[Rfam]
RNA sequence: CAGACCCGUGCGGGAGAGUCCGGCGAAGGCAGCCGGACACCGAAGGAGCAAGCCUCCCCGCCAAUCUCUCAGGUACCCCUACCGCGCAGGUCAG
Numbered sequence: 001c002a003g004a005c006c007c008g009u010g011c012g013g014g015a016g017a018g019u020c021c022g023g024c025g026a027a028g029g030c031a032g033c034c035g036g037a038c039a040c041c042g043a044a045g046g047a048g049c050a051a052g053c054c055u056c057c058c059c060g061c062c063a064a065u066c067u068c069u070c071a072g073g074u075a076c077c078c079c080u081a082c083c084g085c086g087c088a089g090g091u092c093a094g
Base pairs, nucleotide, nucleotide: 006089008087009086010085011084012083013082020036021035022034023033039074040073041072042070043069046068047067048066052061053060

Shown here is a 94-nucleotide RNA sequence from Microbacterium pseudoresistens, a member of the family "Glycine riboswitch aptamer". Rfam describes the family as follows. This family represents the bacterial glycine riboswitch. The match comes from Rfam's covariance-model search (63 bits). Lineage of the source: Bacteria > Actinomycetes > Micrococcales > Microbacteriaceae > Microbacterium.